[Rfam]
RNA: MIR5565 microRNA precursor family
RNA sequence: ACUUUAGUAUUCAUCCCAAUCCACAUGUAUUGAGGUGAAUUGGGGUGUAAAUUAGUUUAACAUACACCACAAUCCACUUCAAUACAUGUGGAUUGGGAUGAAUACUAGA
Dot-bracket structure: ...(((((((((((.(((((((((((((((((..(((.((((..(((.................)))..)))).)))..))))))))))))))))).))))))))))).